[Rfam]
RNA sequence: UAAGCUCCUGCACCUUAUUCCGAAUAGGUUUAAUGAAAGGGCCUAUCUGACUGGAAAUGCCGCAAAAGUCGGCAAUACUUCUCAUAUCAGAUGCAGCACCUCCCCCAAGUGCCGCAUCUGGCAGAGCCGGCCCCGUCCGGCUUUGUAUCACUCCUAAUGGUCUUGACCCGAAUUUCUCCCCCGGAAUUCGG
Numbered sequence: 001u002a003a004g005c006u007c008c009u010g011c012a013c014c015u016u017a018u019u020c021c022g023a024a025u026a027g028g029u030u031u032a033a034u035g036a037a038a039g040g041g042c043c044u045a046u047c048u049g050a051c052u053g054g055a056a057a058u059g060c061c062g063c064a065a066a067a068g069u070c071g072g073c074a075a076u077a078c079u080u081c082u083c084a085u086a087u088c089a090g091a092u093g094c095a096g097c098a099c100c101u102c103c104c105c106c107a108a109g110u111g112c113c114g115c116a117u118c119u120g121g122c123a124g125a126g127c128c129g130g131c132c133c134c135g136u137c138c139g140g141c142u143u144u145g146u147a148u149c150a151c152u153c154c155u156a157a158u159g160g161u162c163u164u165g166a167c168c169c170g171a172a173u174u175u176c177u178c179c180c181c182c183g184g185a186a187u188u189c190g191g
Stems, first nucleotide, its partner, number of pairs: 039162002042159001087121004092116002097111003123144008131135001168191004173186003